[Rfam]
RNA sequence: UGUGCCGCAAGGCGGACUUAUGCUGUUUAACCCGCAGCGUAGCCCAUAGAACGGGCAUAGGACUACUUUUUAUAGGAGAAAAAAAAUG
Numbered sequence: 001u002g003u004g005c006c007g008c009a010a011g012g013c014g015g016a017c018u019u020a021u022g023c024u025g026u027u028u029a030a031c032c033c034g035c036a037g038c039g040u041a042g043c044c045c046a047u048a049g050a051a052c053g054g055g056c057a058u059a060g061g062a063c064u065a066c067u068u069u070u071u072a073u074a075g076g077a078g079a080a081a082a083a084a085a086a087u088g
Base pairs, nucleotide, nucleotide: 001016003014004013005012006011019041020040021039022038023037024036025035042056043055044054045053
Rfam assigns this 88-nucleotide RNA sequence to the family "freshwater-2 RNA". Pairs were carried over by alignment from the consensus structure, which is taken from published work. Rfam classes the family as a cis-regulatory element.